[Rfam]
RNA sequence: AGUCAUUGGGCAAGAAGUGAAUGGGUCAAAUGGGCUUGUCUAAGUUCCGACCCAGAAAAGUCCCCGGGCCACUUGUCCGCAGAGAUGCGGCCUCGGUAACGAGAGAAUCUUGUCGGUCGGAGAGGCACAAUGAGCUGAGACGCGUGUGUGGAGCUUUCGUGGUCUCUCUACCGAAUGAUAACAUGGCCGUAACUAACAGUUAUACACUUGGUCCGUCCUUAACCGGACUAACAGAACGGGGCUUAUUGUACCAAUGAC
Dot-bracket structure: .((((((((..(..(((((..((((((....((((((....)))))).))))))...[[[.[[[[............((((....))))..((((....))))...(((...(((((...((((.......((((......((....))...)))).......))))..)))))..))).........................))))).(((((........))))).........]]]]]]]....).))))))))
RNA: RNase MRP
Organism: Arabis nemorensis